[Rfam]
A member of the RNA family "MIR6274 microRNA precursor family" from Prunus dulcis, 107 nucleotides long. The family has 2 seed sequences and 342 matches in Rfam 15.1.

RNA sequence: GGAUAAUAUUAUUUUGCUAUUUUUGACCAAUAACAUAAAGACAUGUGAAAAAAUAAUCCUACAUGUCAUUACGUUAUUGGCUGAGAAUAACAAAAAGUGUUAUAUCC
Dot-bracket structure: .((((......(((((.(((.((((.((((((((.(((.((((((((..(......)..)))))))).))).)))))))).)))).))).))))).......)))).